RNA sequence: GGAUUCGUGGCUGCAACGGAGUGCUUCGCGCACGGGCUGGAUGAUCAC
Numbered sequence: 001g002g003a004u005u006c007g008u009g010g011c012u013g014c015a016a017c018g019g020a021g022u023g024c025u026u027c028g029c030g031c032a033c034g035g036g037c038u039g040g041a042u043g044a045u046c047a048c
Base pairs, nucleotide, nucleotide: 008039009038010037011036012035021033022032023031024030

Rfam assigns this 48-nucleotide RNA sequence to the family "ssnA RNA". The sequence is in the family's curated seed alignment.